The record is a 56-nucleotide RNA from Phenylobacterium deserti, which matches "sul1 RNA" in Rfam. The source organism's lineage runs through Bacteria, Alphaproteobacteria, Caulobacterales, Caulobacteraceae and Phenylobacterium. It scores 69 bits against the family's covariance model. The base pairs follow the family's consensus structure, which is taken from published work.
RNA sequence: CAUGGACCCGCCGCGAGGGCGGGUGGCUAUCCCGGCCGCCGAUCCGCCGGGCGAUA
Numbered sequence: 001c002a003u004g005g006a007c008c009c010g011c012c013g014c015g016a017g018g019g020c021g022g023g024u025g026g027c028u029a030u031c032c033c034g035g036c037c038g039c040c041g042a043u044c045c046g047c048c049g050g051g052c053g054a055u056a
Stems, first nucleotide, its partner, number of pairs: 006024006012017001031051006